[Rfam]
RNA sequence: ACUGACAAGGGCAAACUUACCGAAAGGUAAGGACGCAAAGUCAUGGGCCUUAGGCUAUUACUAAAUUAAAAGUGUAACUAAACACUUUUAAUUUAUAUGAAAAGCGAUGGUUGCCAGAUUACCGGAU
Numbered sequence: 001a002c003u004g005a006c007a008a009g010g011g012c013a014a015a016c017u018u019a020c021c022g023a024a025a026g027g028u029a030a031g032g033a034c035g036c037a038a039a040g041u042c043a044u045g046g047g048c049c050u051u052a053g054g055c056u057a058u059u060a061c062u063a064a065a066u067u068a069a070a071a072g073u074g075u076a077a078c079u080a081a082a083c084a085c086u087u088u089u090a091a092u093u094u095a096u097a098u099g100a101a102a103a104g105c106g107a108u109g110g111u112u113g114c115c116a117g118a119u120u121a122c123c124g125g126a127u
Stems, first nucleotide, its partner, number of pairs: 001127001003124002011036002016031006034113001039120004044116003047111003
RNA: c-di-GMP-I-GGC riboswitch aptamer
Organism: Pseudobacteroides cellulosolvens